The family of this 175-nucleotide RNA from Agrilus planipennis is "R2 RNA element". Rfam classes the family as a cis-regulatory element. A search with the family's covariance model found it, with a score of 55 bits. For this family Rfam cites "Reverse transcription of R2Bm RNA is primed by a nick at the chromosomal target site: a mechanism for non-LTR retrotransposition" (Luan et al., Cell, 1993). Taxonomically the source falls in Agrilus (Eukaryota, Dicondylia, Elateriformia, Buprestidae).
[Rfam]
RNA sequence: ACCUAACUAUAGCAUAGUUUCAUUAGAAAGAAAAACAUUUAAUAGCCGUUAUAAUCCUUAGAAAAGGUAGAGGGGUUUUAGUCGGUAGGUCCGAGGACUUCCUCCUCGGGAAUCCGACACUACCCAGUCGUACGGACGGCUGGGUGUCUUUUGAAGAUUUCCCCUCUUCCACGAA
Numbered sequence: 001a002c003c004u005a006a007c008u009a010u011a012g013c014a015u016a017g018u019u020u021c022a023u024u025a026g027a028a029a030g031a032a033a034a035a036c037a038u039u040u041a042a043u044a045g046c047c048g049u050u051a052u053a054a055u056c057c058u059u060a061g062a063a064a065a066g067g068u069a070g071a072g073g074g075g076u077u078u079u080a081g082u083c084g085g086u087a088g089g090u091c092c093g094a095g096g097a098c099u100u101c102c103u104c105c106u107c108g109g110g111a112a113u114c115c116g117a118c119a120c121u122a123c124c125c126a127g128u129c130g131u132a133c134g135g136a137c138g139g140c141u142g143g144g145u146g147u148c149u150u151u152u153g154a155a156g157a158u159u160u161c162c163c164c165u166c167u168u169c170c171a172c173g174a175a
Base pairs, nucleotide, nucleotide: 047173048172049171066170067169069167070166072163073162074161081118082117083116084115085114090110091109092108093107094106095105096104097103120146122145123144124143125142126141